[Rfam]
RNA sequence: AUAUCAGUACAGAACUGACGGAAUUAAGUGGAAAAACCACGUGGACUGUAUUGUGUAGAAGCGCCGACCGUCUGGGCAAAGUAU
Numbered sequence: 001a002u003a004u005c006a007g008u009a010c011a012g013a014a015c016u017g018a019c020g021g022a023a024u025u026a027a028g029u030g031g032a033a034a035a036a037c038c039a040c041g042u043g044g045a046c047u048g049u050a051u052u053g054u055g056u057a058g059a060a061g062c063g064c065c066g067a068c069c070g071u072c073u074g075g076g077c078a079a080a081g082u083a084u
Stems, first nucleotide, its partner, number of pairs: 005053008015043001017072005028040004063077003

A member of the RNA family "ZMP/ZTP riboswitch aptamer (pfl RNA motif)" from Megasphaera paucivorans, 84 nucleotides long.